[Rfam]
RNA: Small Cajal body specific RNA 1
RNA sequence: AUGCACCAGAUACUGACCUGUCCGCCUGCGGCUCAGUUGAGUUUUCUCAUACUGAUGCAUGCGUGAUUGUGGCUGUUGGGUCCAAACGGUGCUACAGAAACACAAGACCCUGAGAUUUAAGCCCUGAGAGGGGAGUCGCUCCCUCAGGUGUUAUACCUCUAGGGCACAUUA
Numbered sequence: 001a002u003g004c005a006c007c008a009g010a011u012a013c014u015g016a017c018c019u020g021u022c023c024g025c026c027u028g029c030g031g032c033u034c035a036g037u038u039g040a041g042u043u044u045u046c047u048c049a050u051a052c053u054g055a056u057g058c059a060u061g062c063g064u065g066a067u068u069g070u071g072g073c074u075g076u077u078g079g080g081u082c083c084a085a086a087c088g089g090u091g092c093u094a095c096a097g098a099a100a101c102a103c104a105a106g107a108c109c110c111u112g113a114g115a116u117u118u119a120a121g122c123c124c125u126g127a128g129a130g131g132g133g134a135g136u137c138g139c140u141c142c143c144u145c146a147g148g149u150g151u152u153a154u155a156c157c158u159c160u161a162g163g164g165c166a167c168a169u170u171a
Base pairs, nucleotide, nucleotide: 003092004091005090006089007088015082016081017080018079020077022075024073025072026071027065028064029063030062031058032057033055035053036052037051038049039048040047108164109163126141127140128139130137131136142162146158147157148156